[Rfam]
RNA sequence: CCACAAAUAUUCUCGCUCUUCUGAUUCUGUAAUAAUAAGGGCAGGCUGAACAUUCGCUAUAUAGGACCGUGCACAUGUCCUCAGAUCUACUUCUUUCCCUAGGACUGGUUUUAUCAAGUCUGAUUUAUAUAA
Numbered sequence: 001c002c003a004c005a006a007a008u009a010u011u012c013u014c015g016c017u018c019u020u021c022u023g024a025u026u027c028u029g030u031a032a033u034a035a036u037a038a039g040g041g042c043a044g045g046c047u048g049a050a051c052a053u054u055c056g057c058u059a060u061a062u063a064g065g066a067c068c069g070u071g072c073a074c075a076u077g078u079c080c081u082c083a084g085a086u087c088u089a090c091u092u093c094u095u096u097c098c099c100u101a102g103g104a105c106u107g108g109u110u111u112u113a114u115c116a117a118g119u120c121u122g123a124u125u126u127a128u129a130u131a132a
Stems, first nucleotide, its partner, number of pairs: 004056001016044002019041004024036003066124001068122002071120001081108004086103004
This 132-nucleotide RNA from Crocuta crocuta belongs to the Rfam family "Small nucleolar RNA SNORA72". Pairs were carried over by alignment from the consensus structure, which was predicted with PFOLD. Rfam 15.1 lists 1,541 matches to the family in 547 species. U72 is a member of the H/ACA class of snoRNAs. The snoRNA gene is located in intron 4 of the ribosomal L30 protein gene in human, mouse and chicken. The source organism's lineage runs through Eukaryota, Chordata, Craniata, Teleostomi and Crocuta. Gene Ontology terms of the family: RNA processing and nucleolus.